The family of this 34-nucleotide RNA from Denticeps clupeoides is "Iron response element I". NCBI's taxonomy places the organism under Eukaryota, Gnathostomata, Denticipitoidei, Denticipitidae, Denticeps. Its family is annotated with response to iron ion in the Gene Ontology. A search with the family's covariance model found it, with a score of 49 bits. The literature on the family includes a 1987 paper in Science by Hentze et al., "Identification of the iron-responsive element for the translational regulation of human ferritin mRNA". The family's RNA type in Rfam is cis-regulatory element.
RNA sequence: GGUUCUUGCUUCAACAGUGCUUGAACGGAACGCC
Numbered sequence: 001g002g003u004u005c006u007u008g009c010u011u012c013a014a015c016a017g018u019g020c021u022u023g024a025a026c027g028g029a030a031c032g033c034c
Base pairs, nucleotide, nucleotide: 001034002033003030004029005028006027008026010025011024012023013022014021015019